Rfam assigns this 177-nucleotide RNA from Oribacterium sp. C9 to the family "Clostridiales-1 RNA". Pairs were carried over by alignment from the consensus structure, which is taken from published work. Lineage of the source: Bacteria > Bacillati > Bacillota > Clostridia > Oribacterium.
RNA sequence: UAAAGCCCGGUCGCAGAACGGAAGUGAUCUGAAAGCUUGCUUUCAAGAGCACUUUUGUUCUGGCGACGCUAACAGAUAUGAGCAAAAAAGCUACUCGAACGAAGAGAGAGGAGCGAUUUGCGAAUAUCUGUAGGAUUGCGAGAGUUGCGAAGCAACGGAGCAAUCCUAAGGACUUUA
Numbered sequence: 001u002a003a004a005g006c007c008c009g010g011u012c013g014c015a016g017a018a019c020g021g022a023a024g025u026g027a028u029c030u031g032a033a034a035g036c037u038u039g040c041u042u043u044c045a046a047g048a049g050c051a052c053u054u055u056u057g058u059u060c061u062g063g064c065g066a067c068g069c070u071a072a073c074a075g076a077u078a079u080g081a082g083c084a085a086a087a088a089a090g091c092u093a094c095u096c097g098a099a100c101g102a103a104g105a106g107a108g109a110g111g112a113g114c115g116a117u118u119u120g121c122g123a124a125u126a127u128c129u130g131u132a133g134g135a136u137u138g139c140g141a142g143a144g145u146u147g148c149g150a151a152g153c154a155a156c157g158g159a160g161c162a163a164u165c166c167u168a169a170g171g172a173c174u175u176u177a
Base pairs, nucleotide, nucleotide: 001177002176003175004174005173007171010067011066012065013064015061016060017059018058019057020056021055022054023053024052025051026050028048029047030046031044032043033042034041035040072131073130074129075128076127077126078125079124082121083120084119085118090114091113092112094110095109096108133166134165135164136163137162138161139160144156145155146154147153